[Rfam]
Nucleotides: 102
Base pairs, nucleotide, nucleotide: 001098002097003096004095005094006093008091011089014086016081017080018079019078020077022076028064029063030062032060033059
Number, partner (000 for none) and nucleotide at each position: 001098g002097g003096c004095u005094a006093g007000g008091c009000c010000c011089a012000g013000u014086g015000c016081a017080g018079u019078g020077a021000u022076g023000u024000u025000u026000a027000c028064a029063a030062c031000u032060a033059g034000u035000u036000g037000a038000u039000c040000a041000c042000a043000a044000c045000c046000a047000g048000u049000u050000g051000c052000a053000g054000a055000u056000u057000c058000c059033c060032u061000u062030g063029u064028u065000c066000c067000u068000u069000g070000u071000c072000a073000a074000c075000u076022c077020u078019c079018a080017u081016u082000g083000c084000u085000u086014c087000u088000c089011u090000u091008g092000a093006u094005u095004a096003g097002c098001c099000u100000u101000a102000a